[Rfam]
RNA sequence: GUAUAGCCACGAUUGCAGCGGCAUCCUUUUAUGUUUUUCUUUAAAACAUAAAAGAUAUAGCGAAAAGCGGGAGGAAUC
Dot-bracket structure: .........((.((...((...(((...((((((((.......))))))))..)))...))...)).)).........
RNA: Flavo-1 RNA
Organism: Flavobacterium muglaense